[Rfam]
RNA: Small nucleolar RNA Z107/R87
RNA sequence: GAUCGCAGUGAUGACCUCAUAAAAUUCAAGCUCAACAGACCGGAAUGCAGGUUUCUCUUAACGGAGAACUUUGCGUGUCGAGAACCCGCUGAACUGAGCGAUC
Numbered sequence: 001g002a003u004c005g006c007a008g009u010g011a012u013g014a015c016c017u018c019a020u021a022a023a024a025u026u027c028a029a030g031c032u033c034a035a036c037a038g039a040c041c042g043g044a045a046u047g048c049a050g051g052u053u054u055c056u057c058u059u060a061a062c063g064g065a066g067a068a069c070u071u072u073g074c075g076u077g078u079c080g081a082g083a084a085c086c087c088g089c090u091g092a093a094c095u096g097a098g099c100g101a102u103c
Stems, first nucleotide, its partner, number of pairs: 001103006